[Rfam]
RNA sequence: AGCACUUGUGUUUGUUUUUGUUUAAUUUGUGGGCAAAGACUACAUGCAGGUGUGAAAAAUAAAUCCUUUUUUGCAACCCAGAACUGUUCAGUAUGAGUUUUGUUAUAUGUAAGAAGGAACAUA
Dot-bracket structure: .((((((((.(..((((((((....(....).))))))))...).))))))))..........(.((.(((((.....(((((((..........))))))).......))))).)).)....
RNA: Small nucleolar RNA SNORA40